This 68-nucleotide RNA sequence from Huodendron biaristatum belongs to the Rfam family "Plastid-clpP 5UTR RNA". It is annotated as a cis-regulatory element.
RNA sequence: AAGUCUGUUCGUAGAACAAAGAGAAGCAGAUUUAUUCUAUACUCGAUAAGUACCAAUACGCAAUGGGG
Numbered sequence: 001a002a003g004u005c006u007g008u009u010c011g012u013a014g015a016a017c018a019a020a021g022a023g024a025a026g027c028a029g030a031u032u033u034a035u036u037c038u039a040u041a042c043u044c045g046a047u048a049a050g051u052a053c054c055a056a057u058a059c060g061c062a063a064u065g066g067g068g
Stems, first nucleotide, its partner, number of pairs: 004020001006018004042067003050059003
Annotation: From the family's description: Plastid clpP is a non-coding RNA (ncRNA) recognised in plastids. NCBI's taxonomy places the organism under Eukaryota, Embryophyta, Gunneridae, Pentapetalae, Huodendron. Pairs were carried over by alignment from the consensus structure, which was predicted with LocARNA.